RNA sequence: CCGGAGCUAUUGUGGCUCCGGCCGGUUGCGCGGGCCCUCGGACCCUCAGAGAGGCGAGGGUUCGAGGGCUCGAGUUCGAGGCCAACCUGGUCCACAUGGGUUGAAAAAAAAAUUU
Dot-bracket structure: ...((.((((.((((.((.((..((((.((..((((((.((((((((........)))))))).))))))......)).))))..)).)).)))))))).)).............